A member of the RNA family "MIR8565 microRNA precursor family" from Amborella trichopoda, 154 nucleotides long. A search with the family's covariance model found it, with a score of 138 bits.
[Rfam]
RNA sequence: CCCCCACCUAUGUGUGUAGGACCUUAAAGGAUCACCAUUAAAGUCGACACGUAUCUUUAGAAAAGUUAUCACAUGGGUGUGAAACUUGACUUUUUUAUAGAUCCGUGCCAAAUUUAAUGGUGAUCAUUUGGGGUCCUACACAUAUGGGUGGGGG
Numbered sequence: 001c002c003c004c005c006a007c008c009u010a011u012g013u014g015u016g017u018a019g020g021a022c023c024u025u026a027a028a029g030g031a032u033c034a035c036c037a038u039u040a041a042a043g044u045c046g047a048c049a050c051g052u053a054u055c056u057u058u059a060g061a062a063a064a065g066u067u068a069u070c071a072c073a074u075g076g077g078u079g080u081g082a083a084a085c086u087u088g089a090c091u092u093u094u095u096u097a098u099a100g101a102u103c104c105g106u107g108c109c110a111a112a113u114u115u116a117a118u119g120g121u122g123a124u125c126a127u128u129u130g131g132g133g134u135c136c137u138a139c140a141c142a143u144a145u146g147g148g149u150g151g152g153g154g
Stems, first nucleotide, its partner, number of pairs: 002153012015140014030125003034121009044111001046109001048107004053102004058097011069082005
The source organism's lineage runs through Eukaryota, Streptophyta, Streptophytina, Magnoliopsida and Amborella. Its family is annotated with RISC complex and miRNA-mediated post-transcriptional gene silencing in the Gene Ontology.